Notes: Rfam assigns this 577-nucleotide part of an RNA from an uncultured Verrucomicrobiota bacterium to the family "Bacterial large subunit ribosomal RNA". The family's consensus secondary structure is taken from published work.

[Rfam]
RNA sequence: AUUUAGCAGGCGUACAGGGAAUGCCUUGGCACUGGAGUGCGAUGAAGGACGCGAAAAGCUGCGAUAAGCCACGGAUAGCCGUAUUGGGCGAUCACCCGUGGAUUUCCGAAUGGGGUAACCUAUGGCGGCCAAGCCGCCAUUGUUCAAUGAAGCCACAGGAUGCAAGUCCUUGGGUGGAUUGAUCAGCAAAUACUAGGGGAAGUGAAACAUCUCAGUACCCUAUGGAAAAGAAAACGUAAUGUGAUUCCGUUAGUAGCGGCGAGCGAAUGCGGAACAGCCUAAACCGUUGAUUCUUCAACGGGGUUGUAGGACCUGCAUAAUUGUGGACUAGAUAGGCGAAGCAUAAGGAAUAAUGCUCCAUAGAAGGUGAGAGGCCUGUAGCCAACAUCAAAAUCCACAUGGCGGGUAAUCCUGAGUAAUGCGAUACACGUGAAAUCUCGCAUGAACACAGCGCCGACCACGGCGUAAGGCUAAAUACUAACCAGUGACCGAUAGUGAACAAGUACCGCGAGGGAAAGGUGAAAAGCACCGCUGUGAGCGGAGUGAAAUAGUACCUGAAACCGUACGCCAACAAGGU
Numbered sequence: 001a002u003u004u005a006g007c008a009g010g011c012g013u014a015c016a017g018g019g020a021a022u023g024c025c026u027u028g029g030c031a032c033u034g035g036a037g038u039g040c041g042a043u044g045a046a047g048g049a050c051g052c053g054a055a056a057a058g059c060u061g062c063g064a065u066a067a068g069c070c071a072c073g074g075a076u077a078g079c080c081g082u083a084u085u086g087g088g089c090g091a092u093c094a095c096c097c098g099u100g101g102a103u104u105u106c107c108g109a110a111u112g113g114g115g116u117a118a119c120c121u122a123u124g125g126c127g128g129c130c131a132a133g134c135c136g137c138c139a140u141u142g143u144u145c146a147a148u149g150a151a152g153c154c155a156c157a158g159g160a161u162g163c164a165a166g167u168c169c170u171u172g173g174g175u176g177g178a179u180u181g182a183u184c185a186g187c188a189a190a191u192a193c194u195a196g197g198g199g200a201a202g203u204g205a206a207a208c209a210u211c212u213c214a215g216u217a218c219c220c221u222a223u224g225g226a227a228a229a230g231a232a233a234a235c236g237u238a239a240u241g242u243g244a245u246u247c248c249g250u251u252a253g254u255a256g257c258g259g260c261g262a263g264c265g266a267a268u269g270c271g272g273a274a275c276a277g278c279c280u281a282a283a284c285c286g287u288u289g290a291u292u293c294u295u296c297a298a299c300g301g302g303g304u305u306g307u308a309g310g311a312c313c314u315g316c317a318u319a320a321u322u323g324u325g326g327a328c329u330a331g332a333u334a335g336g337c338g339a340a341g342c343a344u345a346a347g348g349a350a351u352a353a354u355g356c357u358c359c360a361u362a363g364a365a366g367g368u369g370a371g372a373g374g375c376c377u378g379u380a381g382c383c384a385a386c387a388u389c390a391a392a393a394u395c396c397a398c399a400u401g402g403c404g405g406g407u408a409a410u411c412c413u414g415a416g417u418a419a420u421g422c423g424a425u426a427c428a429c430g431u432g433a434a435a436u437c438u439c440g441c442a443u444g445a446a447c448a449c450a451g452c453g454c455c456g457a458c459c460a461c462g463g464c465g466u467a468a469g470g471c472u473a474a475a476u477a478c479u480a481a482c483c484a485g486u487g488a489c490c491g492a493u494a495g496u497g498a499a500c501a502a503g504u505a506c507c508g509c510g511a512g513g514g515a516a517a518g519g520u521g522a523a524a525a526g527c528a529c530c531g532c533u534g535u536g537a538g539c540g541g542a543g544u545g546a547a548a549u550a551g552u553a554c555c556u557g558a559a560a561c562c563g564u565a566c567g568c569c570a571a572c573a574a575g576g577u
Stems, first nucleotide, its partner, number of pairs: 009569007017561001023555001024519002028490002030487006037479001039187002047107003050063003069101006078089003112121003122140007142184001144182005193224001194222005204211002234242002245475001246273005256264002276472004284301007308413003312406005322399006329391001331389003335383003341356004359363001365377003419443006426436001451466005506513002529541004